[Rfam]
Notes
Rfam assigns this 118-nucleotide sequence from Poritiphilus flavus to the family "Bacteroidete tryptophan peptide leader RNA". Gene Ontology terms of the family: regulation of gene expression and S-adenosylmethionine metabolic process. It scores 51 bits against the family's covariance model.
RNA sequence: UCCUUUCUAUAUUUGGCCUAAUGAAAGUAUUAACGGUACAUACUUGGUGGUGGAAGAACUUACGUCAUAAAUCGUGAGCUAAGCACCAUUGUAGUAUAACCGUACGAAAAGGCUUGUC
Numbered sequence: 001u002c003c004u005u006u007c008u009a010u011a012u013u014u015g016g017c018c019u020a021a022u023g024a025a026a027g028u029a030u031u032a033a034c035g036g037u038a039c040a041u042a043c044u045u046g047g048u049g050g051u052g053g054a055a056g057a058a059c060u061u062a063c064g065u066c067a068u069a070a071a072u073c074g075u076g077a078g079c080u081a082a083g084c085a086c087c088a089u090u091g092u093a094g095u096a097u098a099a100c101c102g103u104a105c106g107a108a109a110a111g112g113c114u115u116g117u118c
Stems, first nucleotide, its partner, number of pairs: 035101003040097005046090002049087004057080001059078003062072001